[Rfam]
RNA sequence: ACCAGUUACAAACUUCCCGAUAGGGUUUACCUUGAUUGUGGUAAAUGUGCCUUGUAACCAAUAUAAAAAAUGGGGGAAUAUAAUAUA
Numbered sequence: 001a002c003c004a005g006u007u008a009c010a011a012a013c014u015u016c017c018c019g020a021u022a023g024g025g026u027u028u029a030c031c032u033u034g035a036u037u038g039u040g041g042u043a044a045a046u047g048u049g050c051c052u053u054g055u056a057a058c059c060a061a062u063a064u065a066a067a068a069a070a071u072g073g074g075g076g077a078a079u080a081u082a083a084u085a086u087a
Stems, first nucleotide, its partner, number of pairs: 014078005022052003026045005058073002
RNA: SAM-III riboswitch aptamer (SMK box)